Shown here is a 119-nucleotide sequence from Streptomyces bingchenggensis, a member of the family "Actinobacteria sRNA Ms_IGR-7". The sequence is in the family's curated seed alignment.
RNA sequence: CGGAGAUGUACCUCCGAACUGGUCGAGUAGAAGCCUAGAGAACUCCUAUUCUCCCAGGUCAGAGUGCAUCUCCACUUUCAUGUCCAAACACUGGACCAACCGUCACCCGGUGGAUCGAG
Dot-bracket structure: .((((((((((.(..((.((((..((((.(.((.........)).).))))..)))).)).).))))))))))...........................(((((.....)))..))..
A reference for the family is Li et al. (2013), "Identification of small RNAs in Mycobacterium smegmatis using heterologous Hfq", RNA.